[Rfam]
RNA sequence: AUGUAACAUGGUUGUAAGUCGCUUUGGAUAAAAGUGUCAGCUAAAUGACAUGUA
Numbered sequence: 001a002u003g004u005a006a007c008a009u010g011g012u013u014g015u016a017a018g019u020c021g022c023u024u025u026g027g028a029u030a031a032a033a034g035u036g037u038c039a040g041c042u043a044a045a046u047g048a049c050a051u052g053u054a
Base pairs, nucleotide, nucleotide: 013043014041015040020036021035022034023033024032025031